[Rfam]
RNA sequence: AGCUGUCACGCUUGCCCACGGCACGCGACAGCUGUUCCCCUCUGGAGGUUUUGACCUUCAAACUUGUCAGGCCGCGGAGCAAUCCAGCGGCCUUCUUU
Numbered sequence: 001a002g003c004u005g006u007c008a009c010g011c012u013u014g015c016c017c018a019c020g021g022c023a024c025g026c027g028a029c030a031g032c033u034g035u036u037c038c039c040c041u042c043u044g045g046a047g048g049u050u051u052u053g054a055c056c057u058u059c060a061a062a063c064u065u066g067u068c069a070g071g072c073c074g075c076g077g078a079g080c081a082a083u084c085c086a087g088c089g090g091c092c093u094u095c096u097u098u
Base pairs, nucleotide, nucleotide: 001033002032003031004030005029007027009025043060044059045058046057047056048055049054069093070092071091072090073089074088076085077084078083